[Rfam]
RNA sequence: UUGACAGGUGGGAUAAUCCUUACCUAUUCCUCCUUUUGGAGGGUAGAUAGGACACGAUGAUUGGAGAUGCAUGAAAUGUGAUUAACGCCUCUGCAUAAUCAGGACUUGCAAUACUCAGCAUGCCUAUCUGAU
Dot-bracket structure: .......................(((.((((((....)))))))))..........................((..(((....).))..))....((..(.((...........)).)..))..........
The record is a 132-nucleotide sequence from Saimiri boliviensis, which matches "U8 small nucleolar RNA" in Rfam. A reference for the family is Peculis (1997), "The sequence of the 5' end of the U8 small nucleolar RNA is critical for 5.8S and 28S rRNA maturation", Mol Cell Biol. The family's RNA type in Rfam is C/D-box small nucleolar RNA. The organism belongs to Saimiri boliviensis, within Eukaryota. The family's consensus secondary structure is taken from published work.